This 138-nucleotide sequence from Pitta sordida belongs to the Rfam family "Small Cajal body specific RNA 11". The base pairs follow the family's consensus structure, which was predicted with RNAalifold.

RNA sequence: GCGUCCUGACCUCGUCUUAACUCUUCCCCUCACCAGAACUGUGGUGUGGGGUCUAGGGGCAGACGCAGAUCAACUUACUCUCGUGUUAGGAGGGCUGCCAAAGACAUGUGCAAACCCUUAAAGGCAAGAGAGGACACU
Number, nucleotide and partner (000 for none) at each position: 001g000002c065003g064004u063005c062006c000007u061008g060009a000010c059011c058012u000013c000014g000015u000016c000017u000018u000019a000020a000021c000022u000023c000024u000025u000026c051027c050028c049029c048030u000031c046032a045033c044034c000035a000036g000037a000038a000039c000040u000041g000042u000043g000044g033045u032046g031047u000048g029049g028050g027051g026052u000053c000054u000055a000056g000057g000058g011059g010060c008061a007062g005063a004064c003065g002066c000067a000068g000069a000070u000071c000072a000073a000074c000075u000076u000077a000078c132079u131080c130081u129082c128083g000084u000085g000086u123087u122088a000089g000090g119091a118092g117093g116094g115095c000096u113097g111098c110099c108100a107101a000102a000103g000104a000105c000106a000107u100108g099109u000110g098111c097112a000113a096114a000115c094116c093117c092118u091119u090120a000121a000122a087123g086124g000125c000126a000127a000128g082129a081130g080131a079132g078133g000134a000135c000136a000137c000138u000
About this RNA
About the family: scaRNAs are a specific class of small nuclear RNAs which localise to the Cajal bodies and guide the modification of RNA polymerase II transcribed spliceosomal RNAs U1, U2, U4, U5 and U12. ACA57 belongs to the H/ACA box class of guide RNAs as it has the predicted hairpin-hinge-hairpin-tail structure, conserved H/ACA-box motifs and is found associated with GAR1. The literature on the family includes a 2002 paper in EMBO J by Darzacq et al., "Cajal body-specific small nuclear RNAs: a novel class of 2'-O-methylation and pseudouridylation guide RNAs". It scores 60 bits against the family's covariance model.